[Rfam]
RNA sequence: CAGUUAACGGAAAAAAAUCACCAGGUCUUGGUUUUUUAGAACCUACUGUGGCCGUUAAAACAGCUGUAUCGCCAAAGCGAACUAGUGCAGCACCACUCGCUUGUUUCGCAAGUUGCCCCACUUCUACGGCAAGUGUCUUACCGGCAAGUUCAGUCGUAAAGACUUGUUUUUCAGACAUAUCUUCAUUUCUCCUUUUCUUCGGAGCGCAGAACUUUACCAUGCAUCAAUUCUUUCAUGCACACCUCGUUUAAAAGGCACGCAUGAAUCCAAAAACCUGAUAAACGACUCAUUUUACCACGUUUUUGGAUUCAUG
Numbered sequence: 001c002a003g004u005u006a007a008c009g010g011a012a013a014a015a016a017a018u019c020a021c022c023a024g025g026u027c028u029u030g031g032u033u034u035u036u037u038a039g040a041a042c043c044u045a046c047u048g049u050g051g052c053c054g055u056u057a058a059a060a061c062a063g064c065u066g067u068a069u070c071g072c073c074a075a076a077g078c079g080a081a082c083u084a085g086u087g088c089a090g091c092a093c094c095a096c097u098c099g100c101u102u103g104u105u106u107c108g109c110a111a112g113u114u115g116c117c118c119c120a121c122u123u124c125u126a127c128g129g130c131a132a133g134u135g136u137c138u139u140a141c142c143g144g145c146a147a148g149u150u151c152a153g154u155c156g157u158a159a160a161g162a163c164u165u166g167u168u169u170u171u172c173a174g175a176c177a178u179a180u181c182u183u184c185a186u187u188u189c190u191c192c193u194u195u196u197c198u199u200c201g202g203a204g205c206g207c208a209g210a211a212c213u214u215u216a217c218c219a220u221g222c223a224u225c226a227a228u229u230c231u232u233u234c235a236u237g238c239a240c241a242c243c244u245c246g247u248u249u250a251a252a253a254g255g256c257a258c259g260c261a262u263g264a265a266u267c268c269a270a271a272a273a274c275c276u277g278a279u280a281a282a283c284g285a286c287u288c289a290u291u292u293u294a295c296c297a298c299g300u301u302u303u304u305g306g307a308u309u310c311a312u313g
Base pairs, nucleotide, nucleotide: 003256004255005254011249012248013247014215015214016213018211027079029077030043031042032041033040034039047068048067049066050065051064054061055060102206103205104204105203106202107201110199111198112197122158124156126154127153129151135145136144165177166176167175168174169173220239221238222237260313261312262311263310264309265308266307267306268305269304270303271302272301273300274299277296279294
About this RNA
This 313-nucleotide RNA sequence from Listeria kieliensis belongs to the Rfam family "Listeria sRNA rliD". Rfam classes the family as an antisense RNA. A search with the family's covariance model found it, with a score of 167 bits.